[Rfam]
RNA sequence: AUGCUGUAGUGGCAUGGUGGAACGAUAUACUCCGGGAUUUCUGGCCUGGGAUCGAACCCUACGGCCGGACGCAGAUUUGCACGCCCAGUCUCAUGGCUGGGCAAGGAGAUUACUUCUAGUAAUCUUCGCGCUGCGCGCCGCGUUUUGAGUGCUGUCUACUCCUCUGUUGUGUAGCGCCGAGUUGAAGUGUCCCGAUUUAACCAAUUAAUCGAUCCUUGCGGGUACGAGCUUUGAGGCCGGGGCAUGAGAAAUCUGCCCCAUAACCAGGUUUCAGCGGCAAAGUAGUCCCCUGUGCGGUUUCGAACCCGCGCUUUGUCCUCACCGCUGUUAGGGGAGUUUCAUCCAGCGACAGCAAGGACCUCCCGUGAUGGAGGCGGUCGGGAUAGCACGCUCUCGGAAAUUAGUGCUCAACCGGUAUUUUCCCUCCCCUUGCGGGUUGUGGAGUGUAUGAACCAUCAAAUU
Numbered sequence: 001a002u003g004c005u006g007u008a009g010u011g012g013c014a015u016g017g018u019g020g021a022a023c024g025a026u027a028u029a030c031u032c033c034g035g036g037a038u039u040u041c042u043g044g045c046c047u048g049g050g051a052u053c054g055a056a057c058c059c060u061a062c063g064g065c066c067g068g069a070c071g072c073a074g075a076u077u078u079g080c081a082c083g084c085c086c087a088g089u090c091u092c093a094u095g096g097c098u099g100g101g102c103a104a105g106g107a108g109a110u111u112a113c114u115u116c117u118a119g120u121a122a123u124c125u126u127c128g129c130g131c132u133g134c135g136c137g138c139c140g141c142g143u144u145u146u147g148a149g150u151g152c153u154g155u156c157u158a159c160u161c162c163u164c165u166g167u168u169g170u171g172u173a174g175c176g177c178c179g180a181g182u183u184g185a186a187g188u189g190u191c192c193c194g195a196u197u198u199a200a201c202c203a204a205u206u207a208a209u210c211g212a213u214c215c216u217u218g219c220g221g222g223u224a225c226g227a228g229c230u231u232u233g234a235g236g237c238c239g240g241g242g243c244a245u246g247a248g249a250a251a252u253c254u255g256c257c258c259c260a261u262a263a264c265c266a267g268g269u270u271u272c273a274g275c276g277g278c279a280a281a282g283u284a285g286u287c288c289c290c291u292g293u294g295c296g297g298u299u300u301c302g303a304a305c306c307c308g309c310g311c312u313u314u315g316u317c318c319u320c321a322c323c324g325c326u327g328u329u330a331g332g333g334g335a336g337u338u339u340c341a342u343c344c345a346g347c348g349a350c351a352g353c354a355a356g357g358a359c360c361u362c363c364c365g366u367g368a369u370g371g372a373g374g375c376g377g378u379c380g381g382g383a384u385a386g387c388a389c390g391c392u393c394u395c396g397g398a399a400a401u402u403a404g405u406g407c408u409c410a411a412c413c414g415g416u417a418u419u420u421u422c423c424c425u426c427c428c429c430u431u432g433c434g435g436g437u438u439g440u441g442g443a444g445u446g447u448a449u450g451a452a453c454c455a456u457c458a459a460a461u462u
Base pairs, nucleotide, nucleotide: 001015002014003013004012016457017456018455019454020453025449026448027447028446029445030444031443036422037420145411146410147409148408149407150406151405152404153403154402159174160173162171164169178396179395180394184391187389188388189387190386191382192381193380194379195378196377197376213372214371215370216368217367219365220364221363222362230268231267232266233265239259240258241257242256243255244254246253247252315359316358317357318356319355324353325352326351327350328349333344334343335342
A member of the RNA family "Fungal signal recognition particle RNA" from Torulaspora delbrueckii, 462 nucleotides long. Rfam 15.1 lists 748 matches to the family in 741 species. It is annotated as a non-coding RNA gene. For this family Rfam cites "Structural and energetic analysis of RNA recognition by a universally conserved protein from the signal recognition particle" (Batey et al., J Mol Biol, 2001). The base pairs follow the family's consensus structure, which is taken from published work. The source organism's lineage runs through Eukaryota, saccharomyceta, Saccharomycetes, Saccharomycetaceae and Torulaspora. It scores 102 bits against the family's covariance model.